Notes:
Bacterial RNase P class A: a 377-nucleotide RNA sequence from Salinibacterium sp. dk2585. By type it is a ribozyme. It scores 298 bits against the family's covariance model. Lineage of the source: Bacteria > Actinomycetota > Micrococcales > Microbacteriaceae > Salinibacterium.
[Rfam]
RNA sequence: UGGGUCGGCAAGACGGUCGCGUCGCCAGGGCUGCUUCGGCAGCCCGGCGCCGAGGAACGUCCGGGCUCCACAGAGCAGGACGGUGGGUAACACCCACCCGGGGCAACCCGCGAGAAAGUGCAACAGAAAGCAGACCGCCACUGGCUUCGGCCAGCGGUAAGGGUGAAACGGUGGUGUAAGAGACCACCAGCGGCCCGAGCGAUCGGGCUGGCUGGGUAAACCUCGUCCGGAGCAAGGUCAGACAGGAAGCGUUACGGGUUGCUCGCCCAGCUUCCGGGUAGACCGCUAGAGGGCUGCGGCAACGUAGUCCCGAGAUAGAUGGCCGUCCAGCACCCGAGCGGUGUGAACAGAACCCGGCGUAUCAGCCGGCCCAUUCG
Numbered sequence: 001u002g003g004g005u006c007g008g009c010a011a012g013a014c015g016g017u018c019g020c021g022u023c024g025c026c027a028g029g030g031c032u033g034c035u036u037c038g039g040c041a042g043c044c045c046g047g048c049g050c051c052g053a054g055g056a057a058c059g060u061c062c063g064g065g066c067u068c069c070a071c072a073g074a075g076c077a078g079g080a081c082g083g084u085g086g087g088u089a090a091c092a093c094c095c096a097c098c099c100g101g102g103g104c105a106a107c108c109c110g111c112g113a114g115a116a117a118g119u120g121c122a123a124c125a126g127a128a129a130g131c132a133g134a135c136c137g138c139c140a141c142u143g144g145c146u147u148c149g150g151c152c153a154g155c156g157g158u159a160a161g162g163g164u165g166a167a168a169c170g171g172u173g174g175u176g177u178a179a180g181a182g183a184c185c186a187c188c189a190g191c192g193g194c195c196c197g198a199g200c201g202a203u204c205g206g207g208c209u210g211g212c213u214g215g216g217u218a219a220a221c222c223u224c225g226u227c228c229g230g231a232g233c234a235a236g237g238u239c240a241g242a243c244a245g246g247a248a249g250c251g252u253u254a255c256g257g258g259u260u261g262c263u264c265g266c267c268c269a270g271c272u273u274c275c276g277g278g279u280a281g282a283c284c285g286c287u288a289g290a291g292g293g294c295u296g297c298g299g300c301a302a303c304g305u306a307g308u309c310c311c312g313a314g315a316u317a318g319a320u321g322g323c324c325g326u327c328c329a330g331c332a333c334c335c336g337a338g339c340g341g342u343g344u345g346a347a348c349a350g351a352a353c354c355c356g357g358c359g360u361a362u363c364a365g366c367c368g369g370c371c372c373a374u375u376c377g
Stems, first nucleotide, its partner, number of pairs: 001373009011362001012327007020052002023049004028044001057360003061357005066232004073264004078228005083097005098112001099110004113223002118221002120217002135162002137158003141154005170188006190212001191210008236284004245275006256268004291310008